[Rfam]
RNA: S15-Flavobacteria ribosomal protein leader
Organism: Mesonia sp. HuA40
RNA sequence: UAUAUUUGCCGCUUGAUAGAAAAUCUAUCUAUGCAUAAUAAUCAUUGAAAUAAUAUUGGAAUG
Numbered sequence: 001u002a003u004a005u006u007u008g009c010c011g012c013u014u015g016a017u018a019g020a021a022a023a024u025c026u027a028u029c030u031a032u033g034c035a036u037a038a039u040a041a042u043c044a045u046u047g048a049a050a051u052a053a054u055a056u057u058g059g060a061a062u063g
Stems, first nucleotide, its partner, number of pairs: 015029005